Shown here is a 63-nucleotide RNA, a member of the family "S4-Fusobacteriales ribosomal protein leader". It is annotated as a cis-regulatory leader. Clan: Ribosomal Protein S4 Leader clan. On this family, see Eckert and Weinberg, BMC Microbiol 2020: "Discovery of 20 novel ribosomal leader candidates in bacteria and archaea".
[Rfam]
RNA sequence: CUGUAAAGACAUGGUGAGUCGUAGGACCAUCUCCAUAAUUGCAGAAUGGAACAUGUCGAUGAA
Numbered sequence: 001c002u003g004u005a006a007a008g009a010c011a012u013g014g015u016g017a018g019u020c021g022u023a024g025g026a027c028c029a030u031c032u033c034c035a036u037a038a039u040u041g042c043a044g045a046a047u048g049g050a051a052c053a054u055g056u057c058g059a060u061g062a063a
Base pairs, nucleotide, nucleotide: 008057009056010055011054012053013052014030015029016028018027019026020025032050033049034048035047036046